[Rfam]
RNA sequence: AUACACAGAGGCCUUCUCUUCCUGGUUCUUCCUGGAGUAGGGAAAAGCUGGGUUGAGAGGGCGAAAAAAAAAAAAA
Numbered sequence: 001a002u003a004c005a006c007a008g009a010g011g012c013c014u015u016c017u018c019u020u021c022c023u024g025g026u027u028c029u030u031c032c033u034g035g036a037g038u039a040g041g042g043a044a045a046a047g048c049u050g051g052g053u054u055g056a057g058a059g060g061g062c063g064a065a066a067a068a069a070a071a072a073a074a075a076a
Base pairs, nucleotide, nucleotide: 014059015058016057017056018055021052022051023050024049025048029044030043031042032041033040
Background: Rfam assigns this 76-nucleotide RNA from Propithecus coquereli to the family "mir-320 microRNA precursor family". NCBI's taxonomy places the organism under Eukaryota, Chordata, Boreoeutheria, Primates, Propithecus. Gene Ontology terms of the family: cellular response to glucose stimulus, long-term synaptic potentiation and miRNA-mediated post-transcriptional gene silencing. On this family, see Berezikov et al., Genome Res 2006: "Many novel mammalian microRNA candidates identified by extensive cloning and RAKE analysis".